RNA: Small nucleolar RNA SNORA13
Organism: Betta splendens
RNA sequence: UGCCUUCAUGUGUUGCCCGUUUGUUGCUCUCUUCAAUAAAUGUGGCGUCAGCGAAGGCAUACAGCAAAUCUUGGAUCGGCCUUGGCAAGGUUCUCAUCCGCUAACCUUGUUCUAAGUUUUAGUCCAAGUACAGAU
Numbered sequence: 001u002g003c004c005u006u007c008a009u010g011u012g013u014u015g016c017c018c019g020u021u022u023g024u025u026g027c028u029c030u031c032u033u034c035a036a037u038a039a040a041u042g043u044g045g046c047g048u049c050a051g052c053g054a055a056g057g058c059a060u061a062c063a064g065c066a067a068a069u070c071u072u073g074g075a076u077c078g079g080c081c082u083u084g085g086c087a088a089g090g091u092u093c094u095c096a097u098c099c100g101c102u103a104a105c106c107u108u109g110u111u112c113u114a115a116g117u118u119u120u121a122g123u124c125c126a127a128g129u130a131c132a133g134a135u
Base pairs, nucleotide, nucleotide: 002058003057004056005055006054007053011050012049014047015046016045017044018042019041020040021039022038023037024036025035070128071127072126073125074123076121078119079118084117088113089112090110091109